[Rfam]
RNA sequence: AGCGCAUCAGGGCAAACCAACGGAAACGUUGGGACGCAAAGCUACGGGUCUACGGGGACUUGACCUAGGAUCGCCGGGCUGCCGCU
Numbered sequence: 001a002g003c004g005c006a007u008c009a010g011g012g013c014a015a016a017c018c019a020a021c022g023g024a025a026a027c028g029u030u031g032g033g034a035c036g037c038a039a040a041g042c043u044a045c046g047g048g049u050c051u052a053c054g055g056g057g058a059c060u061u062g063a064c065c066u067a068g069g070a071u072c073g074c075c076g077g078g079c080u081g082c083c084g085c086u
Stems, first nucleotide, its partner, number of pairs: 012037002017032006040080004045076003048071003055065002
RNA: c-di-GMP-I riboswitch aptamer
Organism: Alicyclobacillus acidocaldarius